MIR5565 microRNA precursor family: a 109-nucleotide sequence from Zea mays. Its family is annotated with RISC complex and miRNA-mediated post-transcriptional gene silencing in the Gene Ontology. It scores 103 bits against the family's covariance model. Taxonomically the source falls in Zea (Eukaryota, Magnoliopsida, Poaceae, Andropogonodae).
RNA sequence: ACUCUCGUAUUCACCUCAAUCCAUGUGUAUUGAGGUGGAUUGGGGUGUAACUUAAACUAAUUUACACCAUAAUCCACCUCAAUACACGUGGAUUGAGGUGAAUACGAGA
Numbered sequence: 001a002c003u004c005u006c007g008u009a010u011u012c013a014c015c016u017c018a019a020u021c022c023a024u025g026u027g028u029a030u031u032g033a034g035g036u037g038g039a040u041u042g043g044g045g046u047g048u049a050a051c052u053u054a055a056a057c058u059a060a061u062u063u064a065c066a067c068c069a070u071a072a073u074c075c076a077c078c079u080c081a082a083u084a085c086a087c088g089u090g091g092a093u094u095g096a097g098g099u100g101a102a103u104a105c106g107a108g109a
Stems, first nucleotide, its partner, number of pairs: 004108011016096017035077008045067003